[Rfam]
RNA sequence: GAAAAAGCCGUGAGUAGGAAGAAUGUAAAAUGUUCUUUUUUAGAGAGAGUAGGGUUGGUGAAACUACUUAAAGAAUUUUUACAGGGCCAACCUAUUAGCUCUGUGUGAUGAACACAGCGUAUCUCUGCGUUAAAGAGUCCGAGAGGGAGAGCAUUAUUGCACUUCAACUAGGGUGGUACCACAGGAAUUAUCCUGCCCCUAAU
Numbered sequence: 001g002a003a004a005a006a007g008c009c010g011u012g013a014g015u016a017g018g019a020a021g022a023a024u025g026u027a028a029a030a031u032g033u034u035c036u037u038u039u040u041u042a043g044a045g046a047g048a049g050u051a052g053g054g055u056u057g058g059u060g061a062a063a064c065u066a067c068u069u070a071a072a073g074a075a076u077u078u079u080u081a082c083a084g085g086g087c088c089a090a091c092c093u094a095u096u097a098g099c100u101c102u103g104u105g106u107g108a109u110g111a112a113c114a115c116a117g118c119g120u121a122u123c124u125c126u127g128c129g130u131u132a133a134a135g136a137g138u139c140c141g142a143g144a145g146g147g148a149g150a151g152c153a154u155u156a157u158u159g160c161a162c163u164u165c166a167a168c169u170a171g172g173g174u175g176g177u178a179c180c181a182c183a184g185g186a187a188u189u190a191u192c193c194u195g196c197c198c199c200u201a202a203u
Stems, first nucleotide, its partner, number of pairs: 007099002015094004024083006036072003047069006102116005118129003146165004151160002170200004182195004
Dot-bracket structure: ......((......((((.....((((((......(((........((((((...........))))))))).....)))))).......))))...))..(((((.....))))).(((......)))................((((.((......)).))))....((((........((((......)))).))))...
Shown here is a 203-nucleotide RNA from Ruminococcus bovis, a member of the family "T-box leader". The family has 48 seed sequences and 19,395 matches in Rfam 15.1. It scores 109 bits against the family's covariance model. The source organism's lineage runs through Bacteria, Bacillati, Bacillota, Oscillospiraceae and Ruminococcus. Uncharged tRNA acts as the effector for transcription antitermination of genes in the T-box leader family. T-boxes are found upstream of many aminoacyl-tRNA synthetase genes and some amino acid biosynthetic genes usually in Gram-positive bacteria. The anticodon of a specific tRNA base pairs to a specifier sequence within the T-box motif, and the NCCA acceptor tail of the tRNA base pairs to a conserved bulge in the T-box antiterminator hairpin.